[Rfam]
RNA sequence: AGGGACGACACGGGGUGUCCCGCCCGGGACUGAGAUCACACCCGUCGAACCUGCUCCAGCUGACACUGGCGAAGGGAUGUCCGGCGAUGGACGC
Number, nucleotide and partner (000 for none) at each position: 001a000002g000003g000004g000005a000006c000007g081008a080009c079010a078011c044012g043013g042014g041015g000016u038017g030018u029019c028020c027021c026022g000023c000024c000025c000026g021027g020028g019029a018030c017031u000032g000033a000034g000035a000036u000037c000038a016039c000040a000041c014042c013043c012044g011045u000046c000047g000048a000049a000050c075051c074052u073053g000054c000055u000056c069057c068058a067059g066060c000061u000062g000063a000064c000065a000066c059067u058068g057069g056070c000071g000072a000073a052074g051075g050076g000077a000078u010079g009080u008081c007082c000083g000084g000085c000086g000087a000088u000089g000090g000091a000092c000093g000094c000
The record is a 94-nucleotide sequence from Modestobacter italicus, which matches "TPP riboswitch aptamer (THI element)" in Rfam. The family's consensus secondary structure is taken from published work.